Shown here is a 180-nucleotide RNA from Pseudomonas sp. TAD18, a member of the family "Pseudomonas sRNA P1". Rfam classes the family as a non-coding RNA gene. The source organism's lineage runs through Bacteria, Pseudomonadati, Pseudomonadota, Pseudomonadaceae and Pseudomonas. On this family, see Livny et al., Nucleic Acids Res 2006: "Identification of 17 Pseudomonas aeruginosa sRNAs and prediction of sRNA-encoding genes in 10 diverse pathogens using the bioinformatic tool sRNAPredict2". From the family's description: This small RNA (sRNA) was computationally identified in the genome of the opportunistic pathogen Pseudomonas aeruginosa and its expression verified by northern blot analysis.
[Rfam]
RNA sequence: ACCCCGGUAUUAUUGCUGUUAUGGGUUUGAAUCGAGCUUAGCCUUGUUCAUUUUUUUACACAACACCCCCGUAAAAAAUACAACACGGCCCGCUCAAGCCUGCGGGCGGCACGCUUUUUUUUAGGCAUCAGACGCUCUAAAAAGCGUCAAAAAUGCCCUUUAAGCGCUUUUUUAGGGCAA
Number, nucleotide and partner (000 for none) at each position: 001a000002c000003c000004c000005c000006g000007g000008u000009a000010u000011u000012a000013u000014u000015g000016c000017u000018g000019u000020u000021a000022u000023g101024g100025g099026u098027u097028u096029g000030a000031a000032u000033c000034g093035a000036g091037c000038u000039u000040a000041g089042c088043c087044u085045u000046g084047u083048u082049c000050a000051u000052u078053u077054u076055u075056u074057u073058a072059c071060a000061c000062a000063a000064c000065a000066c000067c000068c000069c000070c000071g059072u058073a057074a056075a055076a054077a053078a052079u000080a000081c000082a048083a047084c046085a044086c000087g043088g042089c041090c000091c036092g000093c034094u000095c000096a028097a027098g026099c025100c024101u023102g000103c000104g000105g000106g000107c000108g000109g000110c000111a000112c000113g000114c000115u000116u000117u000118u000119u000120u000121u000122u000123a000124g000125g000126c000127a000128u000129c000130a000131g000132a000133c000134g000135c000136u000137c000138u000139a000140a000141a000142a000143a000144g000145c000146g000147u000148c000149a000150a000151a000152a000153a000154u000155g000156c000157c000158c000159u000160u000161u000162a000163a000164g178165c177166g000167c175168u000169u000170u000171u000172u000173u000174a000175g167176g000177g165178c164179a000180a000